[Rfam]
RNA sequence: UUCGAGCGCCUGCUGCGGACAGAUGCAGUGAAUGUGCGUGUCGAUGCCGCCGGCCGUGACGAUCUUGCCCUCGCCGGCGACGACGUCGGUGCAGCUGCCGACGACCAUGCCGGGGGUGACGCCGUCCAUGACGUCCGGGCUGCCGGCCUUGCCGAUGCCGACAAUGAGGCCGUCCCUGACGCCAAUGUCGGCCUUGUAGAUGCCCGUCCAGUCGACAAUGAGGGCGUUUGUGACGACGAGGUCGAGCGAGUCGGCGUCGGCGCGGCCCGUCGCCUGGCCCAUGCCCUCGCGCAG
Numbered sequence: 001u002u003c004g005a006g007c008g009c010c011u012g013c014u015g016c017g018g019a020c021a022g023a024u025g026c027a028g029u030g031a032a033u034g035u036g037c038g039u040g041u042c043g044a045u046g047c048c049g050c051c052g053g054c055c056g057u058g059a060c061g062a063u064c065u066u067g068c069c070c071u072c073g074c075c076g077g078c079g080a081c082g083a084c085g086u087c088g089g090u091g092c093a094g095c096u097g098c099c100g101a102c103g104a105c106c107a108u109g110c111c112g113g114g115g116g117u118g119a120c121g122c123c124g125u126c127c128a129u130g131a132c133g134u135c136c137g138g139g140c141u142g143c144c145g146g147c148c149u150u151g152c153c154g155a156u157g158c159c160g161a162c163a164a165u166g167a168g169g170c171c172g173u174c175c176c177u178g179a180c181g182c183c184a185a186u187g188u189c190g191g192c193c194u195u196g197u198a199g200a201u202g203c204c205c206g207u208c209c210a211g212u213c214g215a216c217a218a219u220g221a222g223g224g225c226g227u228u229u230g231u232g233a234c235g236a237c238g239a240g241g242u243c244g245a246g247c248g249a250g251u252c253g254g255c256g257u258c259g260g261c262g263c264g265g266c267c268c269g270u271c272g273c274c275u276g277g278c279c280c281a282u283g284c285c286c287u288c289g290c291g292c293a294g
Stems, first nucleotide, its partner, number of pairs: 003291002006288001008287001011163002014160002017075002021071002029052002033049002036047004056068003076153002080149001082147001084145001091143005098138002100135003106130002109125002112122001169278004176272001178271004183265001191225005205214002229262002233257001235255001240252002
RNA: 5' ureB small RNA
Organism: Hirsutella rhossiliensis